The family of this 77-nucleotide RNA from Nitrobacter hamburgensis is "Makes More Granules Regulator RNA (mmgR)". It is annotated as a small RNA. From the family's description: SuhB later renamed mmgR (makes more granules regulator) was a putative non-coding RNA found multiple times in the Agrobacterium tumefaciens genome and related alpha-proteobacteria. Other non-coding RNAs uncovered in the same analysis include: speF, ybhL, metA, and serC.Several studies inSinorhizobium meliloti showed that suhB element is indeed a non-coding RNA:firstly it was detected on Northern blot and called Sm8RNA, secondly in an RNAseq study referred to as SmelC689.The mutant phenotype's (strain lacking the small RNA) cytoplasm contains higher content of polyhydroxybutyrate (PBH)storage granules than wild type strain. The sRNA is required to limit the PBH intracellular accumulation when the nitrogen-fixing Sinorhizobium meliloti is under condition of surplus carbon in relation to nitrogen. It has been renamed to mmgR. Further study confirmed that mmgR fine-tunes the regulation of PBH storage.Northern blot confirmed the expression of the sRNA in other rhizobia species. MmgR homologues were found in most alpha-proteobacteria.
RNA sequence: UAUCGCUGCCCUCCUUGGGCGUUUCCUCCCUAGACUUGGGCCGCUUGUUUUGACGAGCGGCCCUUUUUCUUUUCCGU
Numbered sequence: 001u002a003u004c005g006c007u008g009c010c011c012u013c014c015u016u017g018g019g020c021g022u023u024u025c026c027u028c029c030c031u032a033g034a035c036u037u038g039g040g041c042c043g044c045u046u047g048u049u050u051u052g053a054c055g056a057g058c059g060g061c062c063c064u065u066u067u068u069c070u071u072u073u074c075c076g077u
Stems, first nucleotide, its partner, number of pairs: 008020004039062009